A member of the RNA family "Z30 small nucleolar RNA" from Catharus ustulatus, 95 nucleotides long. The base pairs follow the family's consensus structure, which was predicted with PFOLD.

RNA sequence: AGCAAUGAUGAGCGAAGUAUAGUCUGACCUGGUAUUGCCGAGACUCCGUGUCCGCUCUGACCAGGGCAUGAUCACUUAAUCUUCUCUCUGAGCUA
Numbered sequence: 001a002g003c004a005a006u007g008a009u010g011a012g013c014g015a016a017g018u019a020u021a022g023u024c025u026g027a028c029c030u031g032g033u034a035u036u037g038c039c040g041a042g043a044c045u046c047c048g049u050g051u052c053c054g055c056u057c058u059g060a061c062c063a064g065g066g067c068a069u070g071a072u073c074a075c076u077u078a079a080u081c082u083u084c085u086c087u088c089u090g091a092g093c094u095a
Stems, first nucleotide, its partner, number of pairs: 002093002037055002040052001

It scores 98 bits against the family's covariance model.
The source organism's lineage runs through Eukaryota, Euteleostomi, Archelosauria, Theropoda and Catharus.
The family has 20 seed sequences and 802 matches in Rfam 15.1.